[Rfam]
RNA sequence: AAAAGAGCUAAGGGGUGUACGCCUAUUUGGGCGUGCUGAGAUUAUACCCUCGGAACCUGCACCAGGUCAUGCUGGCGAAGGAAAAGCUCAUAAAAUAAUC
Numbered sequence: 001a002a003a004a005g006a007g008c009u010a011a012g013g014g015g016u017g018u019a020c021g022c023c024u025a026u027u028u029g030g031g032c033g034u035g036c037u038g039a040g041a042u043u044a045u046a047c048c049c050u051c052g053g054a055a056c057c058u059g060c061a062c063c064a065g066g067u068c069a070u071g072c073u074g075g076c077g078a079a080g081g082a083a084a085a086g087c088u089c090a091u092a093a094a095a096u097a098a099u100c
Base pairs, nucleotide, nucleotide: 006088007087008086009085011050012049013048014047016044017036018035019034020033021032022031023030056081057080058079062075063074064073065072
RNA: TPP riboswitch aptamer (THI element)
Organism: Prevotella sp. CAG:5226